[Rfam]
Rfam assigns this 244-nucleotide RNA from Octodon degus to the family "Small nucleolar RNA ZL1". Gene Ontology terms of the family: RNA processing and nucleolus. On this family, see Kishore et al., Genome Biol 2013: "Insights into snoRNA biogenesis and processing from PAR-CLIP of snoRNA core proteins and small RNA sequencing". The match comes from Rfam's covariance-model search (163 bits). Rfam's curators write: Host gene TRRAP. Predicted target U2@U47. Only GU-rich region is homologous to other known snoRNAs. Pairs were carried over by alignment from the consensus structure, which was predicted with RNAfold.
RNA sequence: AGAGAAGCAAAGUGAUGACCAAUUCUGGCUGGAGUCCCCACAAGGCGUGUGUGUGUGUGUGUCUGUGUGUGUCUGUGUAUGUGUGUGUGUUUCUGUCUGUCUCUGUGUCUAUGUCUUUGUGUGUCUCUUUUCUGUGCAUGCACAUGUGUGUCUGAGAGUAUCAAUGUGUGUGACUGGUGUAGGGAACUAGCUAUGUGCCUUGUAUUGGGCCAUGACAGUCAAACUGAUAAGAUCUGAUUGCUUC
Dot-bracket structure: ...(((((((...(((.........((((((....(.(....(.((((((((((((....(...(.(.........................................................).)....)...)))))))))))).)....).).((((......))))..(((((.......))))).((((.((((......)))))))).))))))..........)))...)))))))